[Rfam]
A member of the RNA family "Clostridiales-1 RNA" from Clostridium sp. CAG:411, 168 nucleotides long. A search with the family's covariance model found it, with a score of 55 bits. Rfam classes the family as a small RNA. Taxonomically the source falls in Clostridium (Bacteria, Bacillota, Eubacteriales, Clostridiaceae).
RNA sequence: UAAUAUAAGAGUCAAAAGCUGAACAGUUAUUUGUGCCUGUACGAUAAGAUGUUCGAAUUUGUGACUCAUCAAACAUGAGGAAGUAGAGAUUUAUGUAGUAAAUCAAUGUAUUCCAUAUGCUUGCGGAGUGCGAAAGCUGCCAUGCAGCAAAGCAAUCCAUAAAUAUCA
Dot-bracket structure: (.((((...((((..((..(((((...(..(((((....)))))....).)))))..))...))))...(((.(((..((((...(.(((((((...)))))))..)...))))..))).))).(((.(((....((((.....))))...))).)))....)))).)